[Rfam]
RNA sequence: CAACGCGCCUGGUCGGUGGUUCCCGGCCGGAAUGCGGCCCUGACUUCCCUUCCCCGAUGUCAGGUCCGCAGGCCGGAAGGGAACCACCCCCCAGGGGCACAGAAAG
Numbered sequence: 001c002a003a004c005g006c007g008c009c010u011g012g013u014c015g016g017u018g019g020u021u022c023c024c025g026g027c028c029g030g031a032a033u034g035c036g037g038c039c040c041u042g043a044c045u046u047c048c049c050u051u052c053c054c055c056g057a058u059g060u061c062a063g064g065u066c067c068g069c070a071g072g073c074c075g076g077a078a079g080g081g082a083a084c085c086a087c088c089c090c091c092c093a094g095g096g097g098c099a100c101a102g103a104a105a106g
Stems, first nucleotide, its partner, number of pairs: 010093003015088002018085002021082004027076004033070005039064006046057001
A member of the RNA family "mraW RNA" from Tessaracoccus antarcticus, 106 nucleotides long. NCBI's taxonomy places the organism under Bacteria, Actinomycetota, Propionibacteriales, Propionibacteriaceae, Tessaracoccus. The family's RNA type in Rfam is cis-regulatory element.